[Rfam]
Nucleotides: 117
Stems, first nucleotide, its partner, number of pairs: 001117008013042001015041003021032003026088004043080004048076002050072001084109001089106006
Number, partner (000 for none) and nucleotide at each position: 001117u002116c003115c004114u005113u006112a007111u008110c009000a010000a011000g012000a013042g014000c015041g016040g017039c018000u019000g020000a021032g022031g023030g024000a025000a026088u027087a028086g029085g030023c031022c032021c033000g034000a035000a036000g037000a038000u039017g040016c041015c042013c043080a044079g045078c046077a047000a048076c049075c050072u051000a052000g053000g054000u055000g056000u057000c058000a059000g060000u061000u062000u063000a064000c065000u066000g067000a068000c069000a070000g071000a072050a073000a074000a075049g076048g077046u078045g079044c080043u081000a082000a083000a084109u085029c086028c087027u088026a089106c090105a091104g092103a093102a094101u095000u096000a097000u098000c099000u100000u101094a102093u103092u104091c105090u106089g107000a108000a109084a110008g111007a112006u113005g114004a115003g116002g117001a
Shown here is a 117-nucleotide RNA from Emergencia timonensis, a member of the family "SAM riboswitch aptamer (S box leader)". Rfam describes the family as follows. The SAM riboswitch is found upstream of a number of genes which code for proteins involved in methionine or cysteine biosynthesis in Gram-positive bacteria. It scores 83 bits against the family's covariance model. Gene Ontology term of the family: regulation of gene expression. The family's consensus secondary structure is taken from published work. Taxonomically the source falls in Emergencia (Bacteria, Bacillati, Bacillota, Peptostreptococcales).